[Rfam]
RNA: Pseudoknot of tRNA-like structure
Organism: Tobamovirus tabaci
RNA sequence: GUCGUUAGGAUGGAACGCAAUUAAAUACAUGUGUGACGUGUAUUUGCGAACGACGUAAUUAUUUUCAG
Numbered sequence: 001g002u003c004g005u006u007a008g009g010a011u012g013g014a015a016c017g018c019a020a021u022u023a024a025a026u027a028c029a030u031g032u033g034u035g036a037c038g039u040g041u042a043u044u045u046g047c048g049a050a051c052g053a054c055g056u057a058a059u060u061a062u063u064u065u066c067a068g
Stems, first nucleotide, its partner, number of pairs: 001054006011068001013066003016048003023045009